[Rfam]
RNA sequence: CGUGAUAGCCUCUAUAUGAGUAUCCUGAAAACGGGCUUUUCAGCAUAGAGGUUGUCUUUUUAUUAUAUUAUAGGAGUGCAUAGUGGCCCGUAUCGCAGGCAUUAACAUUCCUGAU
Dot-bracket structure: ...((((((((((..........[[[.....[[[[....{{{....))))))))))..............................]]]]......]]]............}}}.
RNA: Alpha operon ribosome binding site
Organism: Candidatus Schmidhempelia bombi